[Rfam]
RNA sequence: GUUGACAAGUUUGAGGCCAGGGCAGAAGCAUUCACGGUGCAGCCUGCUAGACUCUAACAAACCUGUGACUUCUGCC
Numbered sequence: 001g002u003u004g005a006c007a008a009g010u011u012u013g014a015g016g017c018c019a020g021g022g023c024a025g026a027a028g029c030a031u032u033c034a035c036g037g038u039g040c041a042g043c044c045u046g047c048u049a050g051a052c053u054c055u056a057a058c059a060a061a062c063c064u065g066u067g068a069c070u071u072c073u074g075c076c
Base pairs, nucleotide, nucleotide: 015044016043017042021076022075023074024073025072026071027070028040029039030038048065049064050063053060
RNA: Mammalian CPEB3 ribozyme
Organism: Alligator mississippiensis